Small nucleolar RNA SNORD81: a 72-nucleotide RNA from Sorex araneus. Its Rfam clan is "SNORD26 clan". Pairs were carried over by alignment from the consensus structure, which was predicted with PFOLD. For this family Rfam cites "Classification of gas5 as a multi-small-nucleolar-RNA (snoRNA) host gene and a member of the 5'-terminal oligopyrimidine gene family reveals common features of snoRNA host genes" (Smith and Steitz, Mol Cell Biol, 1998). The family has 22 seed sequences and 317 matches in Rfam 15.1. Rfam links the family to the GO terms RNA processing and nucleolus. Rfam classes the family as a C/D-box small nucleolar RNA. It is one of the family's seed sequences. Lineage of the source: Eukaryota > Bilateria > Gnathostomata > Sarcopterygii > Sorex.
RNA sequence: CAGAAUAUAUGAUGAUCUCAACUUGAACUCUCUCACUGAUGACUUGAUGACAGUAAAUGAUCUGAUAUUCUG
Numbered sequence: 001c002a003g004a005a006u007a008u009a010u011g012a013u014g015a016u017c018u019c020a021a022c023u024u025g026a027a028c029u030c031u032c033u034c035a036c037u038g039a040u041g042a043c044u045u046g047a048u049g050a051c052a053g054u055a056a057a058u059g060a061u062c063u064g065a066u067a068u069u070c071u072g
Base pairs, nucleotide, nucleotide: 001072002071003070004069005068006067007066